Source information
Rfam assigns this 131-nucleotide RNA from Hipposideros armiger to the family "Small nucleolar RNA SNORA38". The match comes from Rfam's covariance-model search (137 bits). Rfam 15.1 lists 628 matches to the family in 149 species. Pairs were carried over by alignment from the consensus structure, which was predicted with RNAfold. Rfam classes the family as an H/ACA-box small nucleolar RNA. Gene Ontology terms of the family: RNA processing, nucleolus and Cajal body.
RNA sequence: CCCUCCUACAAAGGCGUGUAUGUAGGUCUCUGACUUUGGACACGUAAAAACUGGAGGCACAGAAAUGUGGACUUGGAGAAGUCUGGAGCCAGCUUGCUCCCUGCAGGCUCCAGACCAACCAUCCCACAUAG
Numbered sequence: 001c002c003c004u005c006c007u008a009c010a011a012a013g014g015c016g017u018g019u020a021u022g023u024a025g026g027u028c029u030c031u032g033a034c035u036u037u038g039g040a041c042a043c044g045u046a047a048a049a050a051c052u053g054g055a056g057g058c059a060c061a062g063a064a065a066u067g068u069g070g071a072c073u074u075g076g077a078g079a080a081g082u083c084u085g086g087a088g089c090c091a092g093c094u095u096g097c098u099c100c101c102u103g104c105a106g107g108c109u110c111c112a113g114a115c116c117a118a119c120c121a122u123c124c125c126a127c128a129u130a131g
Stems, first nucleotide, its partner, number of pairs: 002057005015044005021038001025029001069124003073121001091109007

Rfam's curators write: ACA38 is a member of the H/ACA class of snoRNA that guide the sites of modification of uridines to pseudouridines.